The family of this 124-nucleotide RNA from Sclerurus mexicanus is "Small nucleolar RNA SNORD22". By type it is a C/D-box small nucleolar RNA.
[Rfam]
RNA sequence: CCCCCAUGAGGAAACGUUCCAUGUCUGACCCCCCUCGUGGGCCCAGGACCUGCCAGGUGGAACCCACUGGUACCCUCAGGGGGGACACGAGGACAGCAAGUCCCGAGGGGACGGUCUGAGGGGG
Numbered sequence: 001c002c003c004c005c006a007u008g009a010g011g012a013a014a015c016g017u018u019c020c021a022u023g024u025c026u027g028a029c030c031c032c033c034c035u036c037g038u039g040g041g042c043c044c045a046g047g048a049c050c051u052g053c054c055a056g057g058u059g060g061a062a063c064c065c066a067c068u069g070g071u072a073c074c075c076u077c078a079g080g081g082g083g084g085a086c087a088c089g090a091g092g093a094c095a096g097c098a099a100g101u102c103c104c105g106a107g108g109g110g111a112c113g114g115u116c117u118g119a120g121g122g123g124g
Stems, first nucleotide, its partner, number of pairs: 001123004
Source information:
The family has 49 seed sequences and 1,081 matches in Rfam 15.1. A reference for the family is Tycowski et al. (1994), "Requirement for intron-encoded U22 small nucleolar RNA in 18S ribosomal RNA maturation", Science. Its family is annotated with nucleolus and RNA processing in the Gene Ontology.